Notes: Shown here is a 326-nucleotide RNA from Sapajus apella, a member of the family "7SK RNA". Its Rfam clan is "7SK clan". NCBI's taxonomy places the organism under Eukaryota, Opisthokonta, Craniata, Platyrrhini, Sapajus. About the family: 7SK was discovered as an abundant small nuclear RNA in the mid-70s but a possible function has only recently been suggested.
RNA sequence: GGAUGUGAGGGUGAUCUGCCCGUGACCACUGUCACCCCAUUGAUUGCCAGGGUUGAUUCGGCCGAUCUGGCUGGCUAGGCGGGUGUCCCCUUCCUCCUUCACCGCUGCCUGUCUGUCCCUCCCGAAGCUGCAUGCUCUGUCAAAGAAUAUGACCAUUCCCAACAGAGGAGGGCUGGUCUUCCGUCAAGGGUAUACGAGUAGCUGAGCUCCCUUGCUAGAACCUCCAAACAAGCUCUCAAGGCCCAUUGUAGGAGAACAUAGGGUAGUCAAGCUUCCAAGGCUCCGGACACAUUCAAAUGGGGCGCUACAUGUGGCAGUCUGCCUUU
Number, nucleotide and partner (000 for none) at each position: 001g108002g000003a106004u000005g102006u101007g100008a099009g098010g097011g096012u000013g093014a092015u000016c000017u000018g090019c000020c000021c000022g000023u000024g087025a086026c085027c000028a000029c082030u081031g080032u079033c078034a000035c074036c073037c070038c069039a068040u000041u000042g067043a066044u065045u064046g062047c061048c060049a000050g000051g000052g000053u000054u000055g000056a000057u000058u000059c000060g048061g047062c046063c000064g045065a044066u043067c042068u039069g038070g037071c000072u000073g036074g035075c000076u000077a000078g033079g032080c031081g030082g029083g000084u000085g026086u025087c024088c000089c000090c018091u000092u014093c013094c000095u000096c011097c010098u009099u008100c007101a006102c005103c000104g000105c000106u003107g000108c001109c000110u000111g000112u000113c000114u000115g000116u171117c170118c168119c167120u166121c165122c139123c000124g137125a136126a000127g135128c134129u000130g000131c000132a000133u000134g128135c127136u125137c124138u000139g122140u162141c000142a000143a000144a000145g000146a000147a000148u000149a156150u000151g000152a000153c000154c000155a000156u149157u000158c000159c000160c000161a000162a140163c000164a000165g121166a120167g119168g118169a000170g117171g116172g000173c000174u000175g000176g000177u000178c000179u000180u000181c000182c000183g000184u000185c000186a000187a000188g000189g000190g000191u000192a000193u000194a000195c000196g000197a000198g000199u000200a000201g272202c271203u270204g000205a000206g000207c266208u265209c000210c263211c262212u261213u260214g259215c000216u000217a000218g000219a000220a000221c000222c254223u253224c252225c251226a000227a000228a249229c248230a247231a246232g000233c000234u000235c000236u000237c000238a000239a000240g000241g000242c000243c000244c000245a000246u231247u230248g229249u228250a000251g225252g224253a223254g222255a000256a000257c000258a000259u214260a213261g212262g211263g210264u000265a208266g207267u000268c000269a000270a203271g202272c201273u000274u000275c000276c000277a000278a000279g000280g000281c000282u000283c000284c000285g000286g000287a000288c000289a000290c000291a000292u000293u000294c000295a000296a000297a000298u000299g325300g324301g323302g322303c321304g318305c317306u316307a000308c314309a000310u000311g000312u000313g000314g308315c000316a306317g305318u304319c000320u000321g303322c302323c301324u300325u299326u000